Purine riboswitch aptamer: a 102-nucleotide RNA sequence from Oceanobacillus picturae.
The family's consensus secondary structure is taken from published work.
The organism belongs to Oceanobacillus, within Bacteria.
Rfam links the family to the GO term purine nucleobase biosynthetic process.

RNA sequence: CUAUUCUAAUUUAAUAGUAUUCAUAUAAUAGUGGGGAUAUGGCCCACGAGUUUCUACCGGUUUACCGUAAAUUAACCGACUAUGAGUGUAAUAAAUGAAAGG
Numbered sequence: 001c002u003a004u005u006c007u008a009a010u011u012u013a014a015u016a017g018u019a020u021u022c023a024u025a026u027a028a029u030a031g032u033g034g035g036g037a038u039a040u041g042g043c044c045c046a047c048g049a050g051u052u053u054c055u056a057c058c059g060g061u062u063u064a065c066c067g068u069a070a071a072u073u074a075a076c077c078g079a080c081u082a083u084g085a086g087u088g089u090a091a092u093a094a095a096u097g098a099a100a101g102g
Base pairs, nucleotide, nucleotide: 018088019087020086021085022084023083024082025081029049031047032046033045034044035043058078059077060076061075062074064072
From the family's description: Riboswitches are metabolite binding domains within certain messenger RNAs that serve as precision sensors for their corresponding targets.